[Rfam]
A member of the RNA family "mir-15 microRNA precursor family" from Anolis carolinensis, 81 nucleotides long. About the family: This family represents the related mir-15a and mir-15b sequences. Clan: mir-15 clan. Rfam links the family to the GO terms miRNA-mediated post-transcriptional gene silencing and RISC complex.
Nucleotides: 081
Base pairs, nucleotide, nucleotide: 004080005079006078013071016068017067018066019065020064022062023061026058027057028056029055030054031053032052033051034050035049
Number, partner (000 for none) and nucleotide at each position: 001000c002000c003000c004080g005079g006078a007000g008000g009000u010000g011000a012000u013071g014000u015000a016068g017067c018066a019065g020064c021000a022062c023061a024000a025000c026058a027057u028056g029055g030054u031053u032052u033051g034050u035049a036000g037000g038000g039000a040000c041000a042000c043000a044000g045000a046000a047000g048000a049035u050034a051033c052032a053031g054030a055029c056028c057027g058026u059000u060000c061023u062022g063000g064020g065019c066018u067017g068016c069000c070000u071013c072000a073000u074000u075000a076000c077000c078006u079005u080004u081000u